Shown here is a 371-nucleotide RNA sequence from Ancylobacter defluvii, a member of the family "Alphaproteobacteria transfer-messenger RNA". Lineage of the source: Bacteria > Alphaproteobacteria > Hyphomicrobiales > Xanthobacteraceae > Ancylobacter. Rfam describes the family as follows. Bacterial tmRNA, also known as 10Sa RNA or SsrA, is named for its dual tRNA and mRNA-like properties.
[Rfam]
RNA sequence: CCCCUUCCAACCGGACGCGCGCCCGCCUAUAUUCAACCUGCCGGCGCAAGCCGGAUAUGGCGAUAAACGGCCAUCGGAAUAAACCCUUCGGACCCGGGGGCAGUACCCGGCGCCUCCACCCGAGCCCAGAUGCGCGCAGCGCUUGCGCGGUGCUGGGCUCGGGCGGGGGCGAAACAGGAUCGACGAGGGCGUAAAGGGUGGGCUUUUGCUCGGCAUGGUACCGCCGUCAUCGGACCGAACAUAUAGUUGCCAACGACAACUAUGCUCCGGUUGCUCAGGCCGCGUGAGCGGUUUGAUCUCUGGGAAAUAAGUCCUUGCGGGUAGCACUGUAAGGCGGGGUUCGGAGGCACCUGGCAACAGAAGCCUCCACU
Numbered sequence: 001c002c003c004c005u006u007c008c009a010a011c012c013g014g015a016c017g018c019g020c021g022c023c024c025g026c027c028u029a030u031a032u033u034c035a036a037c038c039u040g041c042c043g044g045c046g047c048a049a050g051c052c053g054g055a056u057a058u059g060g061c062g063a064u065a066a067a068c069g070g071c072c073a074u075c076g077g078a079a080u081a082a083a084c085c086c087u088u089c090g091g092a093c094c095c096g097g098g099g100g101c102a103g104u105a106c107c108c109g110g111c112g113c114c115u116c117c118a119c120c121c122g123a124g125c126c127c128a129g130a131u132g133c134g135c136g137c138a139g140c141g142c143u144u145g146c147g148c149g150g151u152g153c154u155g156g157g158c159u160c161g162g163g164c165g166g167g168g169g170c171g172a173a174a175c176a177g178g179a180u181c182g183a184c185g186a187g188g189g190c191g192u193a194a195a196g197g198g199u200g201g202g203c204u205u206u207u208g209c210u211c212g213g214c215a216u217g218g219u220a221c222c223g224c225c226g227u228c229a230u231c232g233g234a235c236c237g238a239a240c241a242u243a244u245a246g247u248u249g250c251c252a253a254c255g256a257c258a259a260c261u262a263u264g265c266u267c268c269g270g271u272u273g274c275u276c277a278g279g280c281c282g283c284g285u286g287a288g289c290g291g292u293u294u295g296a297u298c299u300c301u302g303g304g305a306a307a308u309a310a311g312u313c314c315u316u317g318c319g320g321g322u323a324g325c326a327c328u329g330u331a332a333g334g335c336g337g338g339g340u341u342c343g344g345a346g347g348c349a350c351c352u353g354g355c356a357a358c359a360g361a362a363g364c365c366u367c368c369a370c371u
Base pairs, nucleotide, nucleotide: 041054042053043052044051059210060209061208062207063206069203071201072200073199074198075197084189085188086187088186089185090184094110095109096108097107098106111171112170113169114168115167116166117165211226212225213224214223216237217236218235221233222232337352338351339350340349343368344367345366346365347364348363
Pairs were carried over by alignment from the consensus structure, which is taken from published work. Rfam classes the family as a non-coding RNA gene.